The family of this 131-nucleotide RNA sequence from Panurus biarmicus is "Small nucleolar RNA SNORA44". The organism belongs to Panurus, within Eukaryota. ACA44 is a member of the H/ACA class of snoRNA that guide the sites of modification of uridines to pseudouridines. The base pairs follow the family's consensus structure, which was predicted with PFOLD. The match comes from Rfam's covariance-model search (66 bits). The family's RNA type in Rfam is H/ACA-box small nucleolar RNA.
[Rfam]
RNA sequence: CUGCAUGUUUAUCCAAGAGCUGUGGCUCCACGCAGUAGCUGCAGGUCUCCAACAACAUGCCAGAGCAAUGGGAAGGUCUUUGACUGCUGGGCCUGUUCUGCCCGUGACUGUUACUCACCUCCCCGAUACAU
Dot-bracket structure: ............(....(((((((......)))))...))...).........................(((.((..........((((((.........)))).....)).......)).))).......